A member of the RNA family "mir-2006 microRNA precursor family" from Patiria miniata, 83 nucleotides long. The base pairs follow the family's consensus structure, which was predicted with RNAalifold. Rfam's curators put it in the seed alignment.
[Rfam]
RNA sequence: CGUGACAUGUGACAUCGCCACCAGGUGUACUUCAGUUAAAUACCAAAAUCUGAGCACACUUGGUAGCGGUGCCUUAAGUCAUU
Numbered sequence: 001c002g003u004g005a006c007a008u009g010u011g012a013c014a015u016c017g018c019c020a021c022c023a024g025g026u027g028u029a030c031u032u033c034a035g036u037u038a039a040a041u042a043c044c045a046a047a048a049u050c051u052g053a054g055c056a057c058a059c060u061u062g063g064u065a066g067c068g069g070u071g072c073c074u075u076a077a078g079u080c081a082u083u
Stems, first nucleotide, its partner, number of pairs: 002082005008076002011073001013071006020064009030054002033052003
Dot-bracket structure: .(((((.((.(.((((((.(((((((((.((.(((..............))))).))))))))).)))))).).)).))))).